[Rfam]
Selenocysteine transfer RNA: an 86-nucleotide RNA sequence from Nephila pilipes.
The family is grouped with related families in Rfam's "tRNA clan".
The family has 109 seed sequences and 4,211 matches in Rfam 15.1.
Rfam links the family to the GO term triplet codon-amino acid adaptor activity.
The base pairs follow the family's consensus structure, which is taken from published work.
RNA sequence: GCCCAGAUGAGCCCCUAUGGUCCGGUGUGUGGGCUUCAAACCCGUAGCUGACAAGAUUCAGAGUGGUUCGAUUUCAUCUUCUGGGC
Numbered sequence: 001g002c003c004c005a006g007a008u009g010a011g012c013c014c015c016u017a018u019g020g021u022c023c024g025g026u027g028u029g030u031g032g033g034c035u036u037c038a039a040a041c042c043c044g045u046a047g048c049u050g051a052c053a054a055g056a057u058u059c060a061g062a063g064u065g066g067u068u069c070g071a072u073u074u075c076a077u078c079u080u081c082u083g084g085g086c
Base pairs, nucleotide, nucleotide: 001086002085003084004083005082006081007080009078012027014025015024028046029045030044031043032042033041048061049060050059051058063077064076065075066074